The family of this 46-nucleotide RNA from Drosophila ananassae is "Small nucleolar RNA R442".
Pairs were carried over by alignment from the consensus structure, which was predicted with WAR.
Lineage of the source: Eukaryota > Ecdysozoa > Hexapoda > Sophophora > ananassae species complex.
Rfam classes the family as a C/D-box small nucleolar RNA.
A reference for the family is Huang et al. (2005), "Genome-wide analyses of two families of snoRNA genes from Drosophila melanogaster, demonstrating the extensive utilization of introns for coding of snoRNAs", RNA.
Gene Ontology terms of the family: nucleolus and RNA processing.
The sequence is in the family's curated seed alignment.
RNA sequence: UGCAAGCCUGUUGGGCGUGACUUCGCUUGUCAUAGUUACUCUGAUU
Numbered sequence: 001u002g003c004a005a006g007c008c009u010g011u012u013g014g015g016c017g018u019g020a021c022u023u024c025g026c027u028u029g030u031c032a033u034a035g036u037u038a039c040u041c042u043g044a045u046u
Base pairs, nucleotide, nucleotide: 006016007015008014017033018032019031020030021029